RNA: 7SK RNA
Organism: Malurus elegans
RNA sequence: GUGAGGGCACUCUGACUGUGAGAUGUGAUAUGCCGUUGAUUGCAGGGGUUGAUUUGACAAUCUGCCAGCUCAGGCAGGUGUCCCCUUUCUUCCUCAUAGUGUGCUCCUCCUGAAGCUGUGUCUUGGCUGAGCAGGAACACCUCCCCAGCAGCAAUGGUGCUGCUUUCUGGUCACGAGGGUGUGUGGGAGCUGUGCCCCCCAGCUGGGAGCUCUGAGUGAGCCCAAGGUCCACUUGCAGAGAAUGUAGGUGGGUCAGGCAUCGAACACUGAGCACACCUGCGUGAGAAGAUGCACGAAGCAGUCUGGUGUCAGC
Numbered sequence: 001g002u003g004a005g006g007g008c009a010c011u012c013u014g015a016c017u018g019u020g021a022g023a024u025g026u027g028a029u030a031u032g033c034c035g036u037u038g039a040u041u042g043c044a045g046g047g048g049u050u051g052a053u054u055u056g057a058c059a060a061u062c063u064g065c066c067a068g069c070u071c072a073g074g075c076a077g078g079u080g081u082c083c084c085c086u087u088u089c090u091u092c093c094u095c096a097u098a099g100u101g102u103g104c105u106c107c108u109c110c111u112g113a114a115g116c117u118g119u120g121u122c123u124u125g126g127c128u129g130a131g132c133a134g135g136a137a138c139a140c141c142u143c144c145c146c147a148g149c150a151g152c153a154a155u156g157g158u159g160c161u162g163c164u165u166u167c168u169g170g171u172c173a174c175g176a177g178g179g180u181g182u183g184u185g186g187g188a189g190c191u192g193u194g195c196c197c198c199c200c201a202g203c204u205g206g207g208a209g210c211u212c213u214g215a216g217u218g219a220g221c222c223c224a225a226g227g228u229c230c231a232c233u234u235g236c237a238g239a240g241a242a243u244g245u246a247g248g249u250g251g252g253u254c255a256g257g258c259a260u261c262g263a264a265c266a267c268u269g270a271g272c273a274c275a276c277c278u279g280c281g282u283g284a285g286a287a288g289a290u291g292c293a294c295g296a297a298g299c300a301g302u303c304u305g306g307u308g309u310c311a312g313c
Stems, first nucleotide, its partner, number of pairs: 001097007009088001014085001020082002023079002026076002029073001034064002038062004043056002106157002109151001110126004115122001127148003134144003189258003195252002199248002202245002210240004216236005283313001285310002288302001290300003